The record is a 147-nucleotide RNA from Pararhizobium antarcticum, which matches "Alphaproteobacterial sRNA ar7" in Rfam.

[Rfam]
RNA sequence: CAACGGCGCCUGAACACGCCGUCAUCUGGCGGAUGGCCUGUCCCCCGCCGAAGCCGGAUGAAGGACAAAGGCCUAUCCCCCCUCUCCGGGCCUUUGUCCCAGAUUGACAAGACCGCCACGGCUCCGCCUCCGCCGUGGCGGUCUUUG
Numbered sequence: 001c002a003a004c005g006g007c008g009c010c011u012g013a014a015c016a017c018g019c020c021g022u023c024a025u026c027u028g029g030c031g032g033a034u035g036g037c038c039u040g041u042c043c044c045c046c047g048c049c050g051a052a053g054c055c056g057g058a059u060g061a062a063g064g065a066c067a068a069a070g071g072c073c074u075a076u077c078c079c080c081c082c083u084c085u086c087c088g089g090g091c092c093u094u095u096g097u098c099c100c101a102g103a104u105u106g107a108c109a110a111g112a113c114c115g116c117c118a119c120g121g122c123u124c125c126g127c128c129u130c131c132g133c134c135g136u137g138g139c140g141g142u143c144u145u146u147g
Base pairs, nucleotide, nucleotide: 025058026057027056028055029054030053035049036048037047063099064098065097066096067095068094069093070092071091072090073089111143113141114140115139116138117137118136119135120134121133122132
It scores 114 bits against the family's covariance model.
The source organism's lineage runs through Bacteria, Pseudomonadota, Hyphomicrobiales, Rhizobiaceae and Pararhizobium.